The family of this 120-nucleotide sequence from Oerskovia sp. Root918 is "SAM (S-adenosyl methionine) riboswitch aptamer".

[Rfam]
Nucleotides: 120
Base pairs, nucleotide, nucleotide: 001081002080003079004078009041012039013038014037015036016035017034022032023031042068043067044066047064048063049062051060052059084109085108086107087106088105089101090100091099092098093097
Number, partner (000 for none) and nucleotide at each position: 001081g002080g003079u004078c005000a006000c007000g008000a009041g010000u011000g012039a013038c014037c015036g016035g017034c018000g019000a020000u021000a022032c023031g024000c025000c026000c027000u028000c029000c030000g031023c032022g033000u034017g035016c036015c037014g038013g039012u040000c041009c042068g043067g044066c045000a046000a047064c048063c049062g050000c051060g052059u053000u054000c055000c056000c057000g058000c059052g060051c061000a062049c063048g064047g065000u066044g067043c068042c069000u070000c071000u072000g073000a074000g075000g076000a077000a078004g079003a080002c081001c082000c083000g084109c085108c086107c087106g088105a089101c090100c091099c092098g093097g094000c095000a096000u097093c098092c099091g100090g101089g102000c103000c104000u105088u106087c107086g108085g109084g110000a111000a112000g113000u114000g115000c116000g117000a118000g119000g120000u

A search with the family's covariance model found it, with a score of 68 bits. Rfam links the family to the GO terms regulation of gene expression and S-adenosylmethionine metabolic process.